A member of the RNA family "Group I catalytic intron" from Isachenkonia alkalipeptolytica, 337 nucleotides long. The literature on the family includes a 1990 paper in Annu Rev Biochem by Cech, "Self-splicing of group I introns". It scores 95 bits against the family's covariance model.
[Rfam]
RNA sequence: AGGGUAGCAUUAUUUGAAGGGUCCCUUAAGGGGUAACUCUUAAGUGAUAUCGGGUGAAUUGCUGGAACUUCCUAAAGCUAUGCUUCCUACAACGGAAUUCGAAAGAAUAAACGUGACAGGUCAAAAAAAGUGUGGAUUGGAUAAUCAGCAGCCAAGCUCCUGUACCGAAAGGUUGGAGAAGGUUCAACGACUAGGAUAUACGACCGUAAGGCAAAGAGGAAUACUAUAUUUUGCUAGGUUAUGAAAUCCAUAGGAUCAGAGGUGGUCCGAAGUGCCCGACAAGCGGUGAAUUAUUCAUCGGUUGAAGAUAUAGUCUGGCAAGUAGUGAAAGCUAUUU
Number, nucleotide and partner (000 for none) at each position: 001a000002g000003g000004g000005u000006a000007g024008c000009a022010u021011u020012a000013u018014u000015u000016g000017a000018a013019g000020g011021g010022u009023c000024c007025c000026u000027u000028a000029a000030g039031g038032g037033g000034u000035a000036a000037c032038u031039c030040u000041u000042a000043a000044g000045u000046g000047a000048u000049a000050u279051c278052g277053g276054g000055u274056g273057a000058a000059u000060u150061g149062c148063u147064g146065g145066a000067a000068c000069u000070u141071c140072c139073u000074a137075a000076a000077g000078c000079u000080a000081u000082g000083c000084u000085u000086c000087c000088u000089a000090c000091a000092a000093c000094g000095g000096a000097a000098u000099u000100c000101g000102a000103a000104a000105g000106a000107a000108u000109a000110a000111a000112c000113g000114u000115g000116a000117c000118a000119g000120g000121u000122c000123a000124a000125a000126a000127a000128a000129a000130g000131u000132g000133u000134g000135g000136a000137u074138u000139g072140g071141a070142u000143a000144a000145u065146c064147a063148g062149c061150a060151g183152c182153c000154a000155a000156g000157c000158u176159c175160c000161u000162g000163u000164a173165c172166c171167g000168a000169a000170a000171g166172g165173u164174u000175g159176g158177a000178g000179a000180a000181g000182g152183u151184u000185c000186a000187a316188c000189g315190a314191c313192u312193a311194g000195g000196a000197u000198a000199u000200a000201c000202g000203a000204c000205c000206g000207u000208a000209a000210g000211g000212c000213a000214a000215a000216g000217a000218g000219g000220a000221a000222u000223a000224c000225u000226a000227u000228a000229u000230u000231u000232u000233g000234c000235u000236a000237g000238g000239u000240u000241a000242u000243g000244a000245a000246a000247u000248c000249c000250a000251u000252a000253g000254g000255a000256u000257c000258a000259g000260a000261g000262g000263u000264g000265g000266u000267c000268c000269g000270a000271a000272g000273u056274g055275c000276c053277c052278g051279a050280c000281a000282a302283g000284c300285g299286g298287u297288g296289a295290a294291u000292u000293a000294u290295u289296c288297a287298u286299c285300g284301g000302u282303u000304g000305a000306a000307g000308a000309u000310a000311u193312a192313g191314u190315c189316u187317g000318g000319c000320a000321a000322g335323u334324a333325g332326u331327g000328a000329a000330a000331g326332c325333u324334a323335u322336u000337u000
Group I catalytic introns are large self-splicing ribozymes.